SAM riboswitch aptamer (S box leader): a 105-nucleotide RNA from Bacillus aerolatus. Rfam links the family to the GO term regulation of gene expression. About the family: The SAM riboswitch is found upstream of a number of genes which code for proteins involved in methionine or cysteine biosynthesis in Gram-positive bacteria. The source organism's lineage runs through Bacteria, Bacillati, Bacilli, Caryophanales and Bacillus.
Nucleotides: 105
Base pairs, nucleotide, nucleotide: 002104003103004102005101006100007099008098013042016041017040018039022032023031024030026082027081028080029079043074044073045072046071048070049069052065053064054063078097083094084093085092086091
Number, partner (000 for none) and nucleotide at each position: 001000a002104u003103c004102u005101u006100a007099u008098c009000a010000a011000g012000a013042g014000c015000a016041g017040g018039c019000g020000g021000a022032g023031g024030g025000a026082c027081a028080a029079g030024c031023c032022c033000g034000a035000u036000g037000a038000a039018g040017c041016c042013c043074g044073g045072c046071a047000a048070c049069c050000g051000a052065c053064u054063c055000g056000u057000u058000a059000a060000c061000g062000c063054g064053a065052g066000c067000a068000c069049g070048g071046u072045g073044c074043u075000a076000a077000u078097u079029c080028u081027u082026g083094c084093a085092g086091c087000g088000a089000a090000a091086g092085c093084u094083g095000a096000c097078a098008g099007a100006u101005a102004a103003g104002a105000a